[Rfam]
This 201-nucleotide RNA from Papio anubis belongs to the Rfam family "Small nucleolar RNA SNORA73 family". A search with the family's covariance model found it, with a score of 125 bits. For this family Rfam cites "Comparative Structure Analysis of Vertebrate U17 Small Nucleolar RNA (snoRNA)" (Cervelli et al., J Mol Evol, 2002). Pairs were carried over by alignment from the consensus structure, which is taken from published work. The family has 66 seed sequences and 2,326 matches in Rfam 15.1.

RNA sequence: CCAACGUGGAUAUCCUGGGAAGUCACUCUCCCUAGGCUCUGUCUAAAUGGCAUAGGGGAGCAUAUGGUCUCAUCCCAGGAUGUACAGUCCUUUGCCACAAGUUAGAGAUGAAGCUGGGCCUGGUAUAUGCACCUGAAUAUUCCUACAGUUUCUAAGUCCUGUGGACAAUGACAGAGGAGACAAACCACGCAAGAAAUAUGU
Numbered sequence: 001c002c003a004a005c006g007u008g009g010a011u012a013u014c015c016u017g018g019g020a021a022g023u024c025a026c027u028c029u030c031c032c033u034a035g036g037c038u039c040u041g042u043c044u045a046a047a048u049g050g051c052a053u054a055g056g057g058g059a060g061c062a063u064a065u066g067g068u069c070u071c072a073u074c075c076c077a078g079g080a081u082g083u084a085c086a087g088u089c090c091u092u093u094g095c096c097a098c099a100a101g102u103u104a105g106a107g108a109u110g111a112a113g114c115u116g117g118g119c120c121u122g123g124u125a126u127a128u129g130c131a132c133c134u135g136a137a138u139a140u141u142c143c144u145a146c147a148g149u150u151u152c153u154a155a156g157u158c159c160u161g162u163g164g165a166c167a168a169u170g171a172c173a174g175a176g177g178a179g180a181c182a183a184a185c186c187a188c189g190c191a192a193g194a195a196a197u198a199u200g201u
Stems, first nucleotide, its partner, number of pairs: 001105001003103003007099001008044005014036003018029003048097003056091004060085001062083003065078001132193001134191002138187001149179005156166004
Dot-bracket structure: (.(((.((((((.(((.(((......)))....)))...)))))...(((.....(((((.((((............)..))).)..))))...))).).))).)..........................(.((..(..........(((((..((((...))))........))))).......)..)).)........